The record is an 89-nucleotide sequence from Bacillus sp. B1-b2, which matches "c-di-GMP-I riboswitch aptamer" in Rfam. The source organism's lineage runs through Bacteria, Bacillota, Bacilli, Bacillaceae and Bacillus. The match comes from Rfam's covariance-model search (76 bits). The base pairs follow the family's consensus structure, which is taken from published work. Rfam links the family to the GO term cyclic-di-GMP binding.

[Rfam]
RNA sequence: ACCUAUAUGGGGCAAACUCGUUGAAAGGCGAGGACGCAAAGCUUCAGAUCUAAGGAAUCACUAGAUUCUAUGAUAGCUGGGUUGCACAA
Number, nucleotide and partner (000 for none) at each position: 001a000002c000003c000004u000005a000006u000007a000008u000009g000010g000011g000012g037013c036014a000015a000016a000017c032018u031019c030020g029021u028022u027023g000024a000025a000026a000027g022028g021029c020030g019031a018032g017033g000034a000035c000036g013037c012038a000039a000040a083041g082042c081043u080044u000045c079046a078047g077048a074049u073050c072051u000052a000053a000054g000055g068056a067057a066058u065059c000060a000061c000062u000063a000064g000065a058066u057067u056068c055069u000070a000071u000072g050073a049074u048075a000076g000077c047078u046079g045080g043081g042082u041083u040084g000085c000086a000087c000088a000089a000